The family of this 239-nucleotide sequence from Diabrotica balteata is "RNase MRP". The family's RNA type in Rfam is ribozyme. From the family's description: RNase MRP is an enzymatically active ribonucleoprotein with two distinct roles in eukaryotes. Pairs were carried over by alignment from the consensus structure, which is taken from published work.
RNA sequence: AAGUCCUCUCAAGUCUCACUGCGGUGUUACGUACAAAGUUCUCGUAACUUUUCAUACACUGAGAAAGGUCCCCGGAUCUCUGGUAGAAAGUACCGCCGAUCGUUACCGGUUAGCUGUAGCCGCCGCCUAUUCAAGAUAGGAUAUGAUCAGCGAAUUGGUAUGGCUGCGGUGUUGGUCACAGCAAAGGCAUGUUGGGAAUCCAAUAUAGAUAACUGAACGGGGCCUACUCUGAGUGGACA
Numbered sequence: 001a002a003g004u005c006c007u008c009u010c011a012a013g014u015c016u017c018a019c020u021g022c023g024g025u026g027u028u029a030c031g032u033a034c035a036a037a038g039u040u041c042u043c044g045u046a047a048c049u050u051u052u053c054a055u056a057c058a059c060u061g062a063g064a065a066a067g068g069u070c071c072c073c074g075g076a077u078c079u080c081u082g083g084u085a086g087a088a089a090g091u092a093c094c095g096c097c098g099a100u101c102g103u104u105a106c107c108g109g110u111u112a113g114c115u116g117u118a119g120c121c122g123c124c125g126c127c128u129a130u131u132c133a134a135g136a137u138a139g140g141a142u143a144u145g146a147u148c149a150g151c152g153a154a155u156u157g158g159u160a161u162g163g164c165u166g167c168g169g170u171g172u173u174g175g176u177c178a179c180a181g182c183a184a185a186g187g188c189a190u191g192u193u194g195g196g197a198a199u200c201c202a203a204u205a206u207a208g209a210u211a212a213c214u215g216a217a218c219g220g221g222g223c224c225u226a227c228u229c230u231g232a233g234u235g236g237a238c239a
Stems, first nucleotide, its partner, number of pairs: 003238004008233004014196003018192002022061006036050005066225003070222004082094004095110004100105001112170001114168001117166006127158003140148003198210003202206001
Dot-bracket structure: ..((((.((((..[[[.[[..((((((........(((((.....))))).....))))))....(((.((((........((((.....))))((((.(....).)))).(.(..((((((....(((..........(((...))).......)))..)))))).).)....................]].]]].(((.(...).)))........)))))))....)))).)))).